[Rfam]
Nucleotides: 278
Stems, first nucleotide, its partner, number of pairs: 019132007026074004032068002034065002036061003040056001041054002043051001045050001082125001084123003091113002094110001096108001144200002149198003159189003163186006169178002205271008221257004229251002233243004
Number, partner (000 for none) and nucleotide at each position: 001000c002000u003000c004000u005000u006000u007000u008000c009000c010000c011000u012000a013000c014000c015000c016000a017000a018000c019132g020131a021130c022129c023128u024127g025126u026074g027073c028072c029071a030000a031000c032068g033067u034065u035064c036061c037060c038059g039000u040056c041054c042053a043051c044000c045050c046000u047000c048000c049000g050045g051043g052000g053042u054041g055000u056040g057000u058000u059038c060037g061036g062000u063000c064035g065034a066000c067033g068032c069000g070000c071029u072028g073027g074026c075000a076000g077000u078000u079000c080000g081000u082125c083000c084123g085122c086121c087000a088000c089000a090000a091113g092112g093000a094110g095000c096108c097000a098000u099000c100000u101000c102000u103000a104000u105000u106000a107000u108096g109000a110094u111000g112092u113091c114000a115000a116000u117000u118000u119000c120000c121086g122085g123084c124000c125082g126025a127024c128023a129022g130021g131020u132019c133000u134000g135000a136000g137000a138000g139000u140000g141000a142000g143000u144200c145199g146000g147000u148000a149198g150197c151196g152000u153000g154000c155000c156000g157000a158000a159189g160188c161187c162000u163186g164185a165184g166183u167182u168181c169178g170177c171000g172000g173000a174000a175000a176000c177170g178169u179000u180000u181168g182167a183166g184165c185164u186163c187161g188160g189159u190000g191000g192000a193000g194000g195000g196151c197150g198149c199145u200144g201000c202000c203000a204000g205271g206270g207269c208268g209267a210266c211265u212264g213000a214000u215000u216000c217000c218000u219000a220000c221257u222256c223255c224254c225000u226000u227000a228000u229251g230250c231000u232000a233243g234242g235241c236240c237000g238000u239000c240236g241235g242234c243233c244000a245000c246000u247000g248000a249000u250230g251229c252000u253000u254224g255223g256222g257221a258000a259000a260000a261000a262000c263000c264212c265211a266210g267209u268208u269207g270206c271205c272000u273000a274000c275000a276000u277000c278000u